Annotation
Mammalian CPEB3 ribozyme: a 79-nucleotide sequence from Alligator mississippiensis.

[Rfam]
RNA sequence: AGAGGUCACAAGUUUAAGGCCAUAGCAGAAGCACUCAUGGUGCAGCCUGUUAGAUUUCAAUGAAUCUGUGACUUCUGCU
Numbered sequence: 001a002g003a004g005g006u007c008a009c010a011a012g013u014u015u016a017a018g019g020c021c022a023u024a025g026c027a028g029a030a031g032c033a034c035u036c037a038u039g040g041u042g043c044a045g046c047c048u049g050u051u052a053g054a055u056u057u058c059a060a061u062g063a064a065u066c067u068g069u070g071a072c073u074u075c076u077g078c079u
Stems, first nucleotide, its partner, number of pairs: 018047003024079007031043003051068007